[Rfam]
RNA sequence: AUACUAACCUGACAGGGGAGAUACUAGGAUCACAAAGGUGGUUUUCUCAGGACAAGACUUAUCCAUUGCACUCUAGAUGUGCUGACCCCUGCAAUUUCCCCAAAUGUGGGAAACUCGACUGCGUAAUUUGUGGUAGUGGGGGGACUGUAUUUUCCCUCUCCCCUG
Numbered sequence: 001a002u003a004c005u006a007a008c009c010u011g012a013c014a015g016g017g018g019a020g021a022u023a024c025u026a027g028g029a030u031c032a033c034a035a036a037g038g039u040g041g042u043u044u045u046c047u048c049a050g051g052a053c054a055a056g057a058c059u060u061a062u063c064c065a066u067u068g069c070a071c072u073c074u075a076g077a078u079g080u081g082c083u084g085a086c087c088c089c090u091g092c093a094a095u096u097u098c099c100c101c102a103a104a105u106g107u108g109g110g111a112a113a114c115u116c117g118a119c120u121g122c123g124u125a126a127u128u129u130g131u132g133g134u135a136g137u138g139g140g141g142g143g144a145c146u147g148u149a150u151u152u153u154c155c156c157u158c159u160c161c162c163c164u165g
Stems, first nucleotide, its partner, number of pairs: 013121003016048006023042004049090003056083001058081001060079004092117001094115001095113003099109002138164005144159001147156001

This 165-nucleotide RNA from Phyllostomus discolor belongs to the Rfam family "U1 spliceosomal RNA". From the family's description: U1 is a small nuclear RNA (snRNA) component of the spliceosome (involved in pre-mRNA splicing).